[Rfam]
RNA: Plastid-psbA-1 3UTR RNA
Organism: Nicotiana attenuata
RNA sequence: UCGAAGCUCCAUUACAAAUGGAAAAGAUCCCAGUAUAUAGGAGGUUUUGAAAAGAAAUGAACAAUAAUCAUUUUCUUGUUCUAUCAAGAGGGUGCUAUUGCUCUUUU
Numbered sequence: 001u002c003g004a005a006g007c008u009c010c011a012u013u014a015c016a017a018a019u020g021g022a023a024a025a026g027a028u029c030c031c032a033g034u035a036u037a038u039a040g041g042a043g044g045u046u047u048u049g050a051a052a053a054g055a056a057a058u059g060a061a062c063a064a065u066a067a068u069c070a071u072u073u074u075c076u077u078g079u080u081c082u083a084u085c086a087a088g089a090g091g092g093u094g095c096u097a098u099u100g101c102u103c104u105u106u107u
Stems, first nucleotide, its partner, number of pairs: 008022005055107003059103002062100005069094003073090005